[Rfam]
RNA sequence: CAUUUGUAAGAACUUUUUGAAUCAAGUAAUAUAGUGAUUCAAAAAGUUCUCAGCGGCU
Numbered sequence: 001c002a003u004u005u006g007u008a009a010g011a012a013c014u015u016u017u018u019g020a021a022u023c024a025a026g027u028a029a030u031a032u033a034g035u036g037a038u039u040c041a042a043a044a045a046g047u048u049c050u051c052a053g054c055g056g057c058u
Stems, first nucleotide, its partner, number of pairs: 007052001009050016
Background: This 58-nucleotide sequence from Manihot esculenta belongs to the Rfam family "Plastid-ccsA-ndhD-2 3UTR RNA". The sequence is in the family's curated seed alignment. Rfam classes the family as a cis-regulatory element. Plastid ccsA-ndhD-2 is a non-coding RNA (ncRNA) recognised in plastids. It was found in the three prime untranslated region (3UTR) of ccsA and ndhD genes, its 3UTR location suggests a role in transcript maturation. NCBI's taxonomy places the organism under Eukaryota, Viridiplantae, Magnoliopsida, Malpighiales, Manihot. The base pairs follow the family's consensus structure, which was predicted with LocARNA. A reference for the family is Richter et al. (2023), "Retrograde signaling in plants: A critical review focusing on the GUN pathway and beyond", Plant Commun.